[Rfam]
Annotation
The record is a 105-nucleotide RNA from Vitis vinifera, which matches "Small nucleolar RNA Z107/R87" in Rfam. The family's consensus secondary structure was predicted with RNAfold. It is annotated as a C/D-box small nucleolar RNA. A search with the family's covariance model found it, with a score of 72 bits. For this family Rfam cites "Identification of 66 box C/D snoRNAs in Arabidopsis thaliana: extensive gene duplications generated multiple isoforms predicting new ribosomal RNA 2'-O-methylation sites" (Barneche et al., J Mol Biol, 2001).
RNA sequence: GAUCGCGGUGAUGACCCACUGAAAUUCAAGCUCAACAGACCGGAAUGCGGAGUUUCUCUCCUUUGAGAGCCUCGCGUGUCGACCACCCCACUGAACUGAGGGAUC
Numbered sequence: 001g002a003u004c005g006c007g008g009u010g011a012u013g014a015c016c017c018a019c020u021g022a023a024a025u026u027c028a029a030g031c032u033c034a035a036c037a038g039a040c041c042g043g044a045a046u047g048c049g050g051a052g053u054u055u056c057u058c059u060c061c062u063u064u065g066a067g068a069g070c071c072u073c074g075c076g077u078g079u080c081g082a083c084c085a086c087c088c089c090a091c092u093g094a095a096c097u098g099a100g101g102g103a104u105c
Stems, first nucleotide, its partner, number of pairs: 001105004006100001